This 36-nucleotide RNA from Serinicoccus hydrothermalis belongs to the Rfam family "L31-Actinobacteria ribosomal protein leader".
By type it is a cis-regulatory leader.

RNA sequence: CCGGUUCACGGCCGCGCACCCGCGCGGGCGACCCGG
Numbered sequence: 001c002c003g004g005u006u007c008a009c010g011g012c013c014g015c016g017c018a019c020c021c022g023c024g025c026g027g028g029c030g031a032c033c034c035g036g
Stems, first nucleotide, its partner, number of pairs: 001036004009030002012027006